[Rfam]
RNA sequence: UGAUUCAUUAUAUUUUUUUAAUCAAGGAAAUCAAGGUCGAGAGAGUAUGAGAUUUCUUUCCAUUCUUUCGUAUUUCUCUACCAUGUUUUCUUGAUUAAAAAAAUGCAUUGGAUCA
Numbered sequence: 001u002g003a004u005u006c007a008u009u010a011u012a013u014u015u016u017u018u019u020a021a022u023c024a025a026g027g028a029a030a031u032c033a034a035g036g037u038c039g040a041g042a043g044a045g046u047a048u049g050a051g052a053u054u055u056c057u058u059u060c061c062a063u064u065c066u067u068u069c070g071u072a073u074u075u076c077u078c079u080a081c082c083a084u085g086u087u088u089u090c091u092u093g094a095u096u097a098a099a100a101a102a103a104u105g106c107a108u109u110g111g112a113u114c115a
Stems, first nucleotide, its partner, number of pairs: 001115007011105003016100015032085002035082003039078003

Rfam assigns this 115-nucleotide RNA sequence from Lathyrus oleraceus to the family "MIR1509 microRNA precursor family". The family's consensus secondary structure was predicted with RNAalifold. Rfam 15.1 lists 42 matches to the family in 23 species.